[Rfam]
RNA sequence: AUGGUGAUCUUUCUUCAAGAAUCCAUCUUUGGGGCUUGAAAAGCUUGGGGGGCUUGGAGAGAGGGAAACCUCCUCCAAAAAAAUUCCAAAAGUUUGCCUGUGCUUAGCCAUGACCAAUCAGAAUCUGCUUUUGAAGCAAGCUCAGUGUUUGGCUAAUGCCAUGGCAGACCGGCAAGUCACAGAAAGGCAACAGGCCCUGUUCAUGGGUAUU
Numbered sequence: 001a002u003g004g005u006g007a008u009c010u011u012u013c014u015u016c017a018a019g020a021a022u023c024c025a026u027c028u029u030u031g032g033g034g035c036u037u038g039a040a041a042a043g044c045u046u047g048g049g050g051g052g053c054u055u056g057g058a059g060a061g062a063g064g065g066a067a068a069c070c071u072c073c074u075c076c077a078a079a080a081a082a083a084u085u086c087c088a089a090a091a092g093u094u095u096g097c098c099u100g101u102g103c104u105u106a107g108c109c110a111u112g113a114c115c116a117a118u119c120a121g122a123a124u125c126u127g128c129u130u131u132u133g134a135a136g137c138a139a140g141c142u143c144a145g146u147g148u149u150u151g152g153c154u155a156a157u158g159c160c161a162u163g164g165c166a167g168a169c170c171g172g173c174a175a176g177u178c179a180c181a182g183a184a185a186g187g188c189a190a191c192a193g194g195c196c197c198u199g200u201u202c203a204u205g206g207g208u209a210u211u
Stems, first nucleotide, its partner, number of pairs: 056076003092169006109158003194208004
The family of this 211-nucleotide sequence from Manihot esculenta is "Early nodulin 40".
Lineage of the source: Eukaryota > Streptophytina > eudicotyledons > rosids > Manihot.
Rfam 15.1 lists 341 matches to the family in 193 species.
Gene Ontology term of the family: nodulation.
For this family Rfam cites "Identification of conserved secondary structures and expansion segments in enod40 RNAs reveals new enod40 homologues in plants" (Gultyaev and Roussis, Nucleic Acids Res, 2007).